[Rfam]
RNA: HNH endonuclease-associated RNA and ORF (HEARO) RNA
Organism: Acrocarpospora pleiomorpha
RNA sequence: GUCAACGACCCCCUCCUGAAGGAGGGGGCUUGAGGUGCGGCAAUGCGCUUCGAAGCCCCGCGUUGACCAGCCCCAGUCGAUCACCGUGAAGGAGGUGCAUUCGAUUGACUACGUUUCACGUAAGCGAGCAGACCCACCGGCAGGUGCUUCCUCAGCCUGCCGCUCUGGAAUCGGUGGGAGCAGACAACCCCGAGGGUGGGGACGAAACGGCUCACGGACUCCCGGCGCUGCCGGGCGCUGGCGUGGAACAUGGGCGAGGGGAGAUCGGA
Numbered sequence: 001g002u003c004a005a006c007g008a009c010c011c012c013c014u015c016c017u018g019a020a021g022g023a024g025g026g027g028g029c030u031u032g033a034g035g036u037g038c039g040g041c042a043a044u045g046c047g048c049u050u051c052g053a054a055g056c057c058c059c060g061c062g063u064u065g066a067c068c069a070g071c072c073c074c075a076g077u078c079g080a081u082c083a084c085c086g087u088g089a090a091g092g093a094g095g096u097g098c099a100u101u102c103g104a105u106u107g108a109c110u111a112c113g114u115u116u117c118a119c120g121u122a123a124g125c126g127a128g129c130a131g132a133c134c135c136a137c138c139g140g141c142a143g144g145u146g147c148u149u150c151c152u153c154a155g156c157c158u159g160c161c162g163c164u165c166u167g168g169a170a171u172c173g174g175u176g177g178g179a180g181c182a183g184a185c186a187a188c189c190c191c192g193a194g195g196g197u198g199g200g201g202a203c204g205a206a207a208c209g210g211c212u213c214a215c216g217g218a219c220u221c222c223c224g225g226c227g228c229u230g231c232c233g234g235g236c237g238c239u240g241g242c243g244u245g246g247a248a249c250a251u252g253g254g255c256g257a258g259g260g261g262a263g264a265u266c267g268g269a
Stems, first nucleotide, its partner, number of pairs: 001067007010028002012025002015022002030043003070255004075110008113249009123239001134168002138162008146265001148263006170229001172227002175224006